[Rfam]
RNA sequence: AUCGCUUCUUGGCUUUUUGCCUAAGAUCAAGUACAGUGUCUCUUCUUAUCAGUUUAACAUCUGAUACAUCGUCUGUCUGAGGACAAUAUAUUAAAUGGAUUUUUGGAGCAGGGAGAUGGAAUAGGAGCGUGCUCCAUCCACUCCACGCAUAGACCUGGUAUUGCAGUACCUCCAGGAUCCGUGCUUCCUCA
Dot-bracket structure: ......(((.((.(....).)).)))....................((((((........))))))..((.((.....)).))............................((((..((....((((....)))).))..))))..((((.(.(((((.............)))))..).)))).......
Numbered sequence: 001a002u003c004g005c006u007u008c009u010u011g012g013c014u015u016u017u018u019g020c021c022u023a024a025g026a027u028c029a030a031g032u033a034c035a036g037u038g039u040c041u042c043u044u045c046u047u048a049u050c051a052g053u054u055u056a057a058c059a060u061c062u063g064a065u066a067c068a069u070c071g072u073c074u075g076u077c078u079g080a081g082g083a084c085a086a087u088a089u090a091u092u093a094a095a096u097g098g099a100u101u102u103u104u105g106g107a108g109c110a111g112g113g114a115g116a117u118g119g120a121a122u123a124g125g126a127g128c129g130u131g132c133u134c135c136a137u138c139c140a141c142u143c144c145a146c147g148c149a150u151a152g153a154c155c156u157g158g159u160a161u162u163g164c165a166g167u168a169c170c171u172c173c174a175g176g177a178u179c180c181g182u183g184c185u186u187c188c189u190c191a
Stems, first nucleotide, its partner, number of pairs: 007026003011022002014019001047066006069083002072080002112144004118138002124135004147184004152179001154176005